[Rfam]
RNA sequence: GUGCCCCUUUUAAGGUUGACACAGUGCAUUAAGCAGAAGGGUUAAGUAAGUCUCCAUAAAACCCAGAGAAGAGAAUGUAAAGCUCCUCUUUGGAGGAGCUAGACUCCUGUCUGGAGUCACAGCU
Numbered sequence: 001g002u003g004c005c006c007c008u009u010u011u012a013a014g015g016u017u018g019a020c021a022c023a024g025u026g027c028a029u030u031a032a033g034c035a036g037a038a039g040g041g042u043u044a045a046g047u048a049a050g051u052c053u054c055c056a057u058a059a060a061a062c063c064c065a066g067a068g069a070a071g072a073g074a075a076u077g078u079a080a081a082g083c084u085c086c087u088c089u090u091u092g093g094a095g096g097a098g099c100u101a102g103a104c105u106c107c108u109g110u111c112u113g114g115a116g117u118c119a120c121a122g123c124u
Base pairs, nucleotide, nucleotide: 003042004041005040006039008037009036010035022033050118052116053115054114055113056112063093064092065091066090067089068088069087071085072084073083076081